The family of this 455-nucleotide RNA sequence from Affinibrenneria salicis is "cspA thermoregulator".
Taxonomically the source falls in Affinibrenneria (Bacteria, Pseudomonadati, Pseudomonadota, Pectobacteriaceae).
The literature on the family includes a 2010 paper in Mol Cell by Giuliodori et al., "The cspA mRNA is a thermosensor that modulates translation of the cold-shock protein CspA".

[Rfam]
RNA sequence: CUCGGCCUGUGAUACAGUUCAGGUUAUGAAAGACAUUUUAGUAAAGCAGUUCUUAGUUCAAGCGAUGUACCUAUCUCUUCUCUGACGAAUUUCCUUCUAUAAGUGCUCCAUAAGUAACUUCUGAGGCAGACCUCUAACGCCGUAUUAUGGCGGCACCAAUAAUAUAAAGGAAAUAUCUAUGUCUAAUAAAAUGACUGGUUUAGUAAAAUGGUUCGACGCAGGUAAAGGUUUUGGCUUUAUUUCUCCGGCUGACGGCAGCAAAGAUGUAUUUGUACAUUUCUCCGCCAUUCAGGGCCAGGGCAAUGAAUAUAAAAGCCUGGAAGAAGGUCAGAACGUUGAAUUCAACGUUGAAGCCGGCCAGAAAGGCCCUUCAGCAGUAAACGUUGUCGCCAUCUGAUGUUGAUGGCCCGCUAACUGCGAUAGCGAUGACGGCGCGAGCCUGAGCAGUCAGAAAG
Numbered sequence: 001c002u003c004g005g006c007c008u009g010u011g012a013u014a015c016a017g018u019u020c021a022g023g024u025u026a027u028g029a030a031a032g033a034c035a036u037u038u039u040a041g042u043a044a045a046g047c048a049g050u051u052c053u054u055a056g057u058u059c060a061a062g063c064g065a066u067g068u069a070c071c072u073a074u075c076u077c078u079u080c081u082c083u084g085a086c087g088a089a090u091u092u093c094c095u096u097c098u099a100u101a102a103g104u105g106c107u108c109c110a111u112a113a114g115u116a117a118c119u120u121c122u123g124a125g126g127c128a129g130a131c132c133u134c135u136a137a138c139g140c141c142g143u144a145u146u147a148u149g150g151c152g153g154c155a156c157c158a159a160u161a162a163u164a165u166a167a168a169g170g171a172a173a174u175a176u177c178u179a180u181g182u183c184u185a186a187u188a189a190a191a192u193g194a195c196u197g198g199u200u201u202a203g204u205a206a207a208a209u210g211g212u213u214c215g216a217c218g219c220a221g222g223u224a225a226a227g228g229u230u231u232u233g234g235c236u237u238u239a240u241u242u243c244u245c246c247g248g249c250u251g252a253c254g255g256c257a258g259c260a261a262a263g264a265u266g267u268a269u270u271u272g273u274a275c276a277u278u279u280c281u282c283c284g285c286c287a288u289u290c291a292g293g294g295c296c297a298g299g300g301c302a303a304u305g306a307a308u309a310u311a312a313a314a315g316c317c318u319g320g321a322a323g324a325a326g327g328u329c330a331g332a333a334c335g336u337u338g339a340a341u342u343c344a345a346c347g348u349u350g351a352a353g354c355c356g357g358c359c360a361g362a363a364a365g366g367c368c369c370u371u372c373a374g375c376a377g378u379a380a381a382c383g384u385u386g387u388c389g390c391c392a393u394c395u396g397a398u399g400u401u402g403a404u405g406g407c408c409c410g411c412u413a414a415c416u417g418c419g420a421u422a423g424c425g426a427u428g429a430c431g432g433c434g435c436g437a438g439c440c441u442g443a444g445c446a447g448u449c450a451g452a453a454a455g
Stems, first nucleotide, its partner, number of pairs: 004020002007017003027247002031244003045238002048236004052228003059222001063218002066215002073212003079181001081179001084177002093170004098166003103120001139151003183198003187194001250350005263271002276336002279333001281332002284329001285327002288321006296315001356369002371397004375389001377387002400420003405416002427450004432445002435442002